[Rfam]
RNA sequence: UCCACCGUGAGGAGGAAUCUGAAGGAAGGUGGAGGCAAAUCUCUGGUCUGACGAACAGGAAUCACAUCAGGCUACAGUUAAGGAUAAGGUUGCUGCUCAAACUAAAGUCCAAUAACUACUCGGAAUUAGCUGUAGUAAAUGUGGCAGAUGC
Numbered sequence: 001u002c003c004a005c006c007g008u009g010a011g012g013a014g015g016a017a018u019c020u021g022a023a024g025g026a027a028g029g030u031g032g033a034g035g036c037a038a039a040u041c042u043c044u045g046g047u048c049u050g051a052c053g054a055a056c057a058g059g060a061a062u063c064a065c066a067u068c069a070g071g072c073u074a075c076a077g078u079u080a081a082g083g084a085u086a087a088g089g090u091u092g093c094u095g096c097u098c099a100a101a102c103u104a105a106a107g108u109c110c111a112a113u114a115a116c117u118a119c120u121c122g123g124a125a126u127u128a129g130c131u132g133u134a135g136u137a138a139a140u141g142u143g144g145c146a147g148a149u150g151c
Stems, first nucleotide, its partner, number of pairs: 001016003005012002045151001046149005062144005071136003075132007082110004088103004